[Rfam]
Rfam assigns this 62-nucleotide RNA from Mojavia pulchra to the family "Nitrogen stress-induced RNA 1". It is annotated as a small RNA. Taxonomically the source falls in Mojavia pulchra (Bacteria, Cyanophyceae, Nostocales, Nostocaceae). A reference for the family is Ionescu et al. (2010), "Heterocyst-specific transcription of NsiR1, a non-coding RNA encoded in a tandem array of direct repeats in cyanobacteria", J Mol Biol. The family has 17 seed sequences and 962 matches in Rfam 15.1.
RNA sequence: UGGUAGAUGCACCCUGAUAACUAACUCCCCUAGUUGGCUAACCCUGACUGGGGUUUUUUAUU
Numbered sequence: 001u002g003g004u005a006g007a008u009g010c011a012c013c014c015u016g017a018u019a020a021c022u023a024a025c026u027c028c029c030c031u032a033g034u035u036g037g038c039u040a041a042c043c044c045u046g047a048c049u050g051g052g053g054u055u056u057u058u059u060a061u062u
Stems, first nucleotide, its partner, number of pairs: 002013003028053010